This 211-nucleotide RNA from Desulfitobacterium hafniense belongs to the Rfam family "Enterococcus sRNA 1300". Pairs were carried over by alignment from the consensus structure, which was predicted with RNAfold. Expressed in mid and late exponential phases of growth. The literature on the family includes a 2017 paper in Sci Rep by Sinel et al., "Small RNAs in vancomycin-resistant Enterococcus faecium involved in daptomycin response and resistance". The match comes from Rfam's covariance-model search (65 bits). By type it is a small RNA.
Nucleotides: 211
Stems, first nucleotide, its partner, number of pairs: 006097004012091001013089003019084008029076013048063002051060001112153006119146001121145001123143002127139003165204006172197002177192001179190002
Number, partner (000 for none) and nucleotide at each position: 001000a002000u003000g004000u005000a006097u007096u008095c009094u010000g011000u012091u013089c014088g015087u016000u017000u018000a019084a020083g021082g022081u023080a024079a025078a026077c027000a028000g029076g030075c031074a032073a033072u034071a035070a036069a037068a038067a039066a040065g041064c042000a043000g044000g045000a046000a047000a048063u049062c050000c051060u052000u053000c054000c055000a056000a057000a058000u059000u060051g061000u062049g063048g064041g065040c066039u067038u068037u069036u070035u071034u072033g073032u074031u075030g076029u077026g078025u079024u080023u081022a082021u083020c084019u085000u086000u087015g088014c089013g090000g091012g092000c093000a094009a095008g096007g097006a098000c099000a100000u101000g102000g103000a104000a105000a106000a107000c108000a109000g110000g111000c112153g113152g114151g115150g116149u117148a118000u119146a120000g121145c122000c123143a124142u125000u126000u127139c128138a129137g130000g131000c132000u133000a134000u135000c136000c137129u138128u139127g140000u141000u142124g143123u144000u145121g146119u147000u148117u149116g150115u151114c152113u153112u154000u155000u156000u157000u158000c159000g160000u161000u162000g163000a164000u165204a166203u167202g168201c169200a170199g171000a172197u173196c174000g175000a176000a177192a178000g179190c180189c181000c182000a183000u184000c185000u186000a187000g188000a189180g190179g191000c192177u193000g194000g195000c196173g197172a198000u199170c200169u201168g202167c203166a204165u205000u206000u207000u208000u209000u210000a211000u